[Rfam]
RNA: Makes More Granules Regulator RNA (mmgR)
Organism: Altererythrobacter sp. B11
RNA sequence: GGGACAGGCCUUUCAGGCAUCCUCUCCCAAAACUUUCAGGCCCGGCCGGCAACGGUCGGGCUUUUUUCUUGCCGGCG
Numbered sequence: 001g002g003g004a005c006a007g008g009c010c011u012u013u014c015a016g017g018c019a020u021c022c023u024c025u026c027c028c029a030a031a032a033c034u035u036u037c038a039g040g041c042c043c044g045g046c047c048g049g050c051a052a053c054g055g056u057c058g059g060g061c062u063u064u065u066u067u068c069u070u071g072c073c074g075g076c077g
Stems, first nucleotide, its partner, number of pairs: 008018004039062009